A member of the RNA family "msiK RNA", 55 nucleotides long.
RNA sequence: CGCAGUCGUCCGGCUCGGAUCGUCCGGCACGUUCCUGCCGGUGAAGGGGGCCUAC
Numbered sequence: 001c002g003c004a005g006u007c008g009u010c011c012g013g014c015u016c017g018g019a020u021c022g023u024c025c026g027g028c029a030c031g032u033u034c035c036u037g038c039c040g041g042u043g044a045a046g047g048g049g050g051c052c053u054a055c
Base pairs, nucleotide, nucleotide: 009048010047011046014043024041025040026039027038028037029036

A search with the family's covariance model found it, with a score of 36 bits. Pairs were carried over by alignment from the consensus structure, which is taken from published work.